The family of this 75-nucleotide RNA from Sphingomonas sp. IBVSS2 is "Makes More Granules Regulator RNA (mmgR)". The source organism's lineage runs through Bacteria, Pseudomonadati, Pseudomonadota, Sphingomonadales and Sphingomonas. By type it is a small RNA. Rfam 15.1 lists 1,791 matches to the family in 918 species. The pairing is the family consensus, mapped onto this sequence. The literature on the family includes a 2017 paper in J Bacteriol by Lagares et al., "Regulation of Polyhydroxybutyrate Accumulation in Sinorhizobium meliloti by the Trans-Encoded Small RNA MmgR".
RNA sequence: AGAUCGGGCCUUUCAGGCAUCCUCUCCUAAGACUUUCACGGCCGUCCUUCGGGGCGGCCUUUUUUUUUGCCCGGC
Number, nucleotide and partner (000 for none) at each position: 001a000002g000003a000004u000005c000006g000007g000008g018009c017010c016011u015012u000013u000014c000015a011016g010017g009018c008019a000020u000021c000022c000023u000024c000025u000026c000027c000028u000029a000030a000031g000032a000033c000034u000035u000036u000037c000038a000039c000040g059041g058042c057043c056044g055045u054046c053047c052048u000049u000050c000051g000052g047053g046054g045055c044056g043057g042058c041059c040060u000061u000062u000063u000064u000065u000066u000067u000068u000069g000070c000071c000072c000073g000074g000075c000